Rfam assigns this 115-nucleotide RNA sequence from Ancylobacter tetraedralis to the family "ALIL pseudoknot". The match comes from Rfam's covariance-model search (83 bits). Gene Ontology term of the family: positive regulation of translational frameshifting.
RNA sequence: CGCCUGUCGGGUGAGAGGAACUCGACCGCCGGUCGAAGACAUGAUCGCGUUCAUCGAUGAUCAUCGCGGUGCGUAUGGGGUCGAGCCGAUCUGCAAGGUCCUGCCGAUCGCCCCA
Numbered sequence: 001c002g003c004c005u006g007u008c009g010g011g012u013g014a015g016a017g018g019a020a021c022u023c024g025a026c027c028g029c030c031g032g033u034c035g036a037a038g039a040c041a042u043g044a045u046c047g048c049g050u051u052c053a054u055c056g057a058u059g060a061u062c063a064u065c066g067c068g069g070u071g072c073g074u075a076u077g078g079g080g081u082c083g084a085g086c087c088g089a090u091c092u093g094c095a096a097g098g099u100c101c102u103g104c105c106g107a108u109c110g111c112c113c114c115a
Stems, first nucleotide, its partner, number of pairs: 015029001017027002076115005087110002090107002093104003
Dot-bracket structure: ..............(.((.......)).)..............................................(((((......((.((.(((......))).)).)))))))